[Rfam]
RNA sequence: GCAGGUAGUGAUGUCAUGUGCAGUUCCAGCUGCCGGGGAGGCUGAGCCUGACCGAUUGCUUGAGCCCAGGAGUUCUGGGCUGCAGGGUGCUAUGCCAAGUGGGCAUUCAAGCUAAGGCCACUAUCAAUAUGGUGACCAGUGGGGAGCCAUGGGACACCAGGUUGACUAAGGAGGGGUGAACCAGUCCAGUUAAAAGACAAAGCAGGUCAGAGCUCCCACGGUGGUCAGUAGUGAAAUCACGCCUGUGAACAGGCCCUGCAACAUAGCCUGGGCAGCACAGAGACAUGGGUGCCCCCUU
Numbered sequence: 001g002c003a004g005g006u007a008g009u010g011a012u013g014u015c016a017u018g019u020g021c022a023g024u025u026c027c028a029g030c031u032g033c034c035g036g037g038g039a040g041g042c043u044g045a046g047c048c049u050g051a052c053c054g055a056u057u058g059c060u061u062g063a064g065c066c067c068a069g070g071a072g073u074u075c076u077g078g079g080c081u082g083c084a085g086g087g088u089g090c091u092a093u094g095c096c097a098a099g100u101g102g103g104c105a106u107u108c109a110a111g112c113u114a115a116g117g118c119c120a121c122u123a124u125c126a127a128u129a130u131g132g133u134g135a136c137c138a139g140u141g142g143g144g145a146g147c148c149a150u151g152g153g154a155c156a157c158c159a160g161g162u163u164g165a166c167u168a169a170g171g172a173g174g175g176g177u178g179a180a181c182c183a184g185u186c187c188a189g190u191u192a193a194a195a196g197a198c199a200a201a202g203c204a205g206g207u208c209a210g211a212g213c214u215c216c217c218a219c220g221g222u223g224g225u226c227a228g229u230a231g232u233g234a235a236a237u238c239a240c241g242c243c244u245g246u247g248a249a250c251a252g253g254c255c256c257u258g259c260a261a262c263a264u265a266g267c268c269u270g271g272g273c274a275g276c277a278c279a280g281a282g283a284c285a286u287g288g289g290u291g292c293c294c295c296c297u298u
Base pairs, nucleotide, nucleotide: 001019002018003017005015007014024039025038026037044296046294049291050290052288053287055286056285059282060281061280064273065272066271067270068269069268070267075266076265077264079262081260082259083258084257085256086255087254090252091251093249095247099246100245101244102243103242104241106239107235111232112231113230114229116226117225118224119223120222121221122220124218125164126163127162128161130159131158132157133156134155136153137152139150140149141148142147166170173216174215175214176213177212184207185206186205191200
The family of this 298-nucleotide RNA sequence from Serilophus lunatus is "Metazoan signal recognition particle RNA".
The family's consensus secondary structure is taken from published work.
The signal recognition particle (SRP) is a universally conserved ribonucleoprotein.
It scores 127 bits against the family's covariance model.
Lineage of the source: Eukaryota > Euteleostomi > Sarcopterygii > Archelosauria > Serilophus.
On this family, see Wild et al., Curr Opin Struct Biol 2002: "Towards the structure of the mammalian signal recognition particle".
Gene Ontology terms of the family: signal recognition particle, endoplasmic reticulum targeting and SRP-dependent cotranslational protein targeting to membrane, signal sequence recognition.
It is annotated as a non-coding RNA gene.